[Rfam]
RNA sequence: ACGACCUUACUUGGACAGGAUCUGUUCUAUAGUAAUCGUACCUCUGUAUCCUUGAUUUCUAAGGAGACAGGAAUCCCAACCUGGUGGAUGAAUCAUGACCGUGUGAUCAGAGCGUGAUUAACAAUCUGAUGGUCCUUGUGAUCAUCAGGACCGUAGAGGAUCGUUCUCAGUCAGUCUUCUCUGUCUGGGGUGGUCACACGGUUGUCUGACAAGUU
Numbered sequence: 001a002c003g004a005c006c007u008u009a010c011u012u013g014g015a016c017a018g019g020a021u022c023u024g025u026u027c028u029a030u031a032g033u034a035a036u037c038g039u040a041c042c043u044c045u046g047u048a049u050c051c052u053u054g055a056u057u058u059c060u061a062a063g064g065a066g067a068c069a070g071g072a073a074u075c076c077c078a079a080c081c082u083g084g085u086g087g088a089u090g091a092a093u094c095a096u097g098a099c100c101g102u103g104u105g106a107u108c109a110g111a112g113c114g115u116g117a118u119u120a121a122c123a124a125u126c127u128g129a130u131g132g133u134c135c136u137u138g139u140g141a142u143c144a145u146c147a148g149g150a151c152c153g154u155a156g157a158g159g160a161u162c163g164u165u166c167u168c169a170g171u172c173a174g175u176c177u178u179c180u181c182u183g184u185c186u187g188g189g190g191u192g193g194u195c196a197c198a199c200g201g202u203u204g205u206c207u208g209a210c211a212a213g214u215u
Base pairs, nucleotide, nucleotide: 001039002038003036006032007031013027014026015025016024017023018022044070045069046068047067049065050064051063052062053061054060079214080213082211083210098202099201100200101199102198103197104196105195106194107193108192109191111165112164113163114162121154122153125149126148127147128146129145130144131143132142133141134140167188168187169186170185172183173182174181
The record is a 215-nucleotide RNA sequence from Prunus yedoensis, which matches "Plant small nucleolar RNA U3" in Rfam. Its family is annotated with nucleolus and RNA processing in the Gene Ontology. The base pairs follow the family's consensus structure, which is taken from published work. Its Rfam clan is "U3 clan". Small nucleolar RNAs (snoRNAs) are involved in the processing and modification of rRNA in the nucleolus. The match comes from Rfam's covariance-model search (174 bits). It is annotated as a C/D-box small nucleolar RNA. For this family Rfam cites "The uRNA database" (Zwieb, Nucleic Acids Res, 1997).